The record is a 54-nucleotide RNA, which matches "Mu-gpT-DE RNA" in Rfam.
RNA sequence: CCCUGACAACCGCAUAGGGCGGUUGACAUUAGCCAAGACAGGAGAUAACCAAUG
Dot-bracket structure: .((((.(((((.........))))).............))))............
Numbered sequence: 001c002c003c004u005g006a007c008a009a010c011c012g013c014a015u016a017g018g019g020c021g022g023u024u025g026a027c028a029u030u031a032g033c034c035a036a037g038a039c040a041g042g043a044g045a046u047a048a049c050c051a052a053u054g
Stems, first nucleotide, its partner, number of pairs: 002042004007025005
Rfam classes the family as a small RNA.
Pairs were carried over by alignment from the consensus structure, which is taken from published work.